[Rfam]
RNA sequence: CCCCAUUCCGAGGGGUGCCUGGCAGACGUCCGGGCUGAGAGAGUCCCUUUGAACCUGAUCCGGGUCAUGCCGGCGAAGGGACAGGACAAGUCGAUGCA
Numbered sequence: 001c002c003c004c005a006u007u008c009c010g011a012g013g014g015g016u017g018c019c020u021g022g023c024a025g026a027c028g029u030c031c032g033g034g035c036u037g038a039g040a041g042a043g044u045c046c047c048u049u050u051g052a053a054c055c056u057g058a059u060c061c062g063g064g065u066c067a068u069g070c071c072g073g074c075g076a077a078g079g080g081a082c083a084g085g086a087c088a089a090g091u092c093g094a095u096g097c098a
Stems, first nucleotide, its partner, number of pairs: 006086003010082001011048004016042001017035005054079003060073004

Annotation:
This 98-nucleotide RNA sequence from Pseudolabrys sp. Root1462 belongs to the Rfam family "TPP riboswitch aptamer (THI element)". Pairs were carried over by alignment from the consensus structure, which is taken from published work. It scores 68 bits against the family's covariance model. NCBI's taxonomy places the organism under Bacteria, Pseudomonadati, Pseudomonadota, Xanthobacteraceae, Pseudolabrys.